The family of this 46-nucleotide RNA sequence from Geotrypetes seraphini is "Histone 3' UTR stem-loop". Rfam classes the family as a cis-regulatory element. From the family's description: The mRNAs of metazoan histone genes lack a poly-A tail. 3' end processing occurs at a site between a highly conserved stem-loop (modelled by this family) and a purine rich region around 20 nts downstream (the histone downstream element, or HDE). The stem-loop is bound by a 31 kDa stem-loop binding protein (SLBP - also termed the histone hairpin binding protein, or HBP). Together with U7 snRNA binding of the HDE, SLBP binding nucleate s the formation of the processing complex. The histone 3' UTR stem-loop is also involved in nucleocytoplasmic transport of the mRNA, and in stability regulation and translation efficiency in the cytoplasm.
RNA sequence: AAAAUGGCCUUUUUCAAGGCCACCUACAUAAAUGUGAAGGAUAGAU
Numbered sequence: 001a002a003a004a005u006g007g008c009c010u011u012u013u014u015c016a017a018g019g020c021c022a023c024c025u026a027c028a029u030a031a032a033u034g035u036g037a038a039g040g041a042u043a044g045a046u
Stems, first nucleotide, its partner, number of pairs: 006021006
Dot-bracket structure: .....((((((....)))))).........................
The organism belongs to Geotrypetes, within Eukaryota.